[Rfam]
RNA sequence: CUCUUAUCAAGAGCAGGCAGAGGGACUUGGCCCGAUGAAGCCCAGCAACCGACCGUAAUACCAUUGUGAAAUGGGGCGCGAUUUGCGCCUGUAAGGCACGGUGCUAAUUCCACCAGAAUUUUUUCUGGACAGAUAAGAG
Numbered sequence: 001c002u003c004u005u006a007u008c009a010a011g012a013g014c015a016g017g018c019a020g021a022g023g024g025a026c027u028u029g030g031c032c033c034g035a036u037g038a039a040g041c042c043c044a045g046c047a048a049c050c051g052a053c054c055g056u057a058a059u060a061c062c063a064u065u066g067u068g069a070a071a072u073g074g075g076g077c078g079c080g081a082u083u084u085g086c087g088c089c090u091g092u093a094a095g096g097c098a099c100g101g102u103g104c105u106a107a108u109u110c111c112a113c114c115a116g117a118a119u120u121u122u123u124u125c126u127g128g129a130c131a132g133a134u135a136a137g138a139g
Stems, first nucleotide, its partner, number of pairs: 001139008013043001016042003022033003028112003044105004049101002051097001053095001109131001113128006
RNA: SAM riboswitch aptamer (S box leader)
Organism: Bacillus sp. 165